The family of this 350-nucleotide sequence from Echeneis naucrates is "Vertebrate telomerase RNA". The source organism's lineage runs through Eukaryota, Gnathostomata, Euteleostomi, Euteleosteomorpha and Echeneis. Rfam describes the family as follows. Telomerase is a ribonucleoprotein reverse transcriptase that synthesises telomeric DNA. Telomerase RNAs differ greatly in sequence and structure between vertebrates, ciliates and yeasts, but they share a 5' pseudoknot structure close to the template sequence. Vertebrate telomerase RNAs have a 3' H/ACA snoRNA-like domain.
[Rfam]
RNA sequence: UGGCGGGUGUUUCUGCUAACCCUAAUUCCGGGUCACUUCCUGUACCGACCGUCCGCUGUUUUCUUCUCCGUUCGUGGCUUUCAGCGAACUACAGGAGGUGUUUUUGUUUUUACUUAUAGCUCCGGUAGCUUAAAAAAAAAAAAGCCUGAGAGAGUCACCCCGUCCGGUUCAGUUUCCCGGCGGAGACACCGGGGAUCCCGGCGGUCAGCUCGGCUGCCGCCAAGAGUUGGUCUCUGCCGCCCCGGUGGUCUUCCUGCCGGGAGUCCGCACAGCUGAGCAGAUCAAACCGAGCAGGGCGGCUCCUCCGGGCCUGCUGUGACCCGGAGGAGGAAGCCCGGGCUCGGACACAC
Numbered sequence: 001u002g003g004c005g006g007g008u009g010u011u012u013c014u015g016c017u018a019a020c021c022c023u024a025a026u027u028c029c030g031g032g033u034c035a036c037u038u039c040c041u042g043u044a045c046c047g048a049c050c051g052u053c054c055g056c057u058g059u060u061u062u063c064u065u066c067u068c069c070g071u072u073c074g075u076g077g078c079u080u081u082c083a084g085c086g087a088a089c090u091a092c093a094g095g096a097g098g099u100g101u102u103u104u105u106g107u108u109u110u111u112a113c114u115u116a117u118a119g120c121u122c123c124g125g126u127a128g129c130u131u132a133a134a135a136a137a138a139a140a141a142a143a144g145c146c147u148g149a150g151a152g153a154g155u156c157a158c159c160c161c162g163u164c165c166g167g168u169u170c171a172g173u174u175u176c177c178c179g180g181c182g183g184a185g186a187c188a189c190c191g192g193g194g195a196u197c198c199c200g201g202c203g204g205u206c207a208g209c210u211c212g213g214c215u216g217c218c219g220c221c222a223a224g225a226g227u228u229g230g231u232c233u234c235u236g237c238c239g240c241c242c243c244g245g246u247g248g249u250c251u252u253c254c255u256g257c258c259g260g261g262a263g264u265c266c267g268c269a270c271a272g273c274u275g276a277g278c279a280g281a282u283c284a285a286a287c288c289g290a291g292c293a294g295g296g297c298g299g300c301u302c303c304u305c306c307g308g309g310c311c312u313g314c315u316g317u318g319a320c321c322c323g324g325a326g327g328a329g330g331a332a333g334c335c336c337g338g339g340c341u342c343g344g345a346c347a348c349a350c
Stems, first nucleotide, its partner, number of pairs: 002159002005156002037097004051089002054086005067149002076146003079142003168277007175262009187247007200221005206216004223235004289342004294336004300330001301328005308321002311318001
The family has 37 seed sequences and 523 matches in Rfam 15.1. The base pairs follow the family's consensus structure, which is taken from published work. The match comes from Rfam's covariance-model search (99 bits). The literature on the family includes a 2000 paper in Cell by Chen et al., "Secondary structure of vertebrate telomerase RNA".